[Rfam]
RNA: c-di-GMP-I riboswitch aptamer
RNA sequence: UUGUGUAAAUAGCAAAUCCAUUGAAAAGUGGAGACGCAAAGCCACGGGCCUACAGCAUAGUGCUAGGGCAGCCGGGUUGCCGUA
Numbered sequence: 001u002u003g004u005g006u007a008a009a010u011a012g013c014a015a016a017u018c019c020a021u022u023g024a025a026a027a028g029u030g031g032a033g034a035c036g037c038a039a040a041g042c043c044a045c046g047g048g049c050c051u052a053c054a055g056c057a058u059a060g061u062g063c064u065a066g067g068g069c070a071g072c073c074g075g076g077u078u079g080c081c082g083u084a
Stems, first nucleotide, its partner, number of pairs: 012037002017032006040078004045074003048069003055063003